Record summary: A member of the RNA family "Group I catalytic intron" from Plasmodiophora brassicae, 304 nucleotides long. Rfam links the family to the GO term Group I intron splicing. Group I catalytic introns are large self-splicing ribozymes. They catalyse their own excision from mRNA, tRNA and rRNA precursors in a wide range of organisms. The core secondary structure consists of 9 paired regions (P1-P9). These fold to essentially two domains - the P4-P6 domain (formed from the stacking of P5, P4, P6 and P6a helices) and the P3-P9 domain (formed from the P8, P3, P7 and P9 helices). The secondary structure mark-up for this family represents only this conserved core. Group I catalytic introns often have long ORFs inserted in loop regions. The window size for this search is chosen to minimise search time and catch the small examples. A larger window size will find more matches. NCBI's taxonomy places the organism under Eukaryota, Sar, Phytomyxea, Plasmodiophorida, Plasmodiophora.
RNA sequence: GUGCGUCCGUCGUCAGCCUCUCUCUGUUGUUGCUGGACGGACGCGCGACACCAUCAAAUUGCGGGGACACCCUGAUAGCCUUGUCUACCAAGUCGCCUGCGGAAACGCACUGGCGAUGGCCGAGUUAAUCGCCCUGGGUACGGUAACAACGACAAGGAUGUGUGUGUUAUGGGCAAUCCGCAGCCAAGUCCUACGUCGAACCGCGCACGUUCGAUACGGAUGCUGUCCAUCGACUAAAUGGUGGUGGGUGAUCGCGCCACACGCGAUUGCUUAAGAUAUAGUCAGGCCCUGGUGAGAGCCAGCU
Numbered sequence: 001g002u003g004c005g006u007c008c009g010u011c012g013u014c015a016g017c018c019u020c021u022c023u024c025u026g027u028u029g030u031u032g033c034u035g036g037a038c039g040g041a042c043g044c045g046c047g048a049c050a051c052c053a054u055c056a057a058a059u060u061g062c063g064g065g066g067a068c069a070c071c072c073u074g075a076u077a078g079c080c081u082u083g084u085c086u087a088c089c090a091a092g093u094c095g096c097c098u099g100c101g102g103a104a105a106c107g108c109a110c111u112g113g114c115g116a117u118g119g120c121c122g123a124g125u126u127a128a129u130c131g132c133c134c135u136g137g138g139u140a141c142g143g144u145a146a147c148a149a150c151g152a153c154a155a156g157g158a159u160g161u162g163u164g165u166g167u168u169a170u171g172g173g174c175a176a177u178c179c180g181c182a183g184c185c186a187a188g189u190c191c192u193a194c195g196u197c198g199a200a201c202c203g204c205g206c207a208c209g210u211u212c213g214a215u216a217c218g219g220a221u222g223c224u225g226u227c228c229a230u231c232g233a234c235u236a237a238a239u240g241g242u243g244g245u246g247g248g249u250g251a252u253c254g255c256g257c258c259a260c261a262c263g264c265g266a267u268u269g270c271u272u273a274a275g276a277u278a279u280a281g282u283c284a285g286g287c288c289c290u291g292g293u294g295a296g297a298g299c300c301a302g303c304u
Stems, first nucleotide, its partner, number of pairs: 049246005055240002060182006070173003183226002188221004196214005230284001232283005248270009289302005